[Rfam]
RNA sequence: CAACGGGCCAUCCGCUCCCAACGGCGGACGCUCAUCUGUAAGGAUGGGAGAU
Number, nucleotide and partner (000 for none) at each position: 001c000002a000003a000004c000005g000006g000007g000008c000009c000010a000011u028012c027013c026014g025015c024016u023017c000018c000019c000020a000021a000022c000023g016024g015025c014026g013027g012028a011029c000030g000031c000032u047033c046034a045035u044036c043037u042038g000039u000040a000041a000042g037043g036044a035045u034046g033047g032048g000049a000050g000051a000052u000
Record summary:
The family of this 52-nucleotide RNA sequence from alpha proteobacterium U9-1i is "serC leader". Gene Ontology term of the family: regulation of gene expression. The pairing is the family consensus, mapped onto this sequence. Rfam classes the family as a cis-regulatory leader. From the family's description: This family is a putative regulatory RNA structure that is found upstream of the serC-serA operon in some alpha-proteobacteria. The match comes from Rfam's covariance-model search (45 bits). For this family Rfam cites "Evidence for a second class of S-adenosylmethionine riboswitches and other regulatory RNA motifs in alpha-proteobacteria" (Corbino et al., Genome Biol, 2005).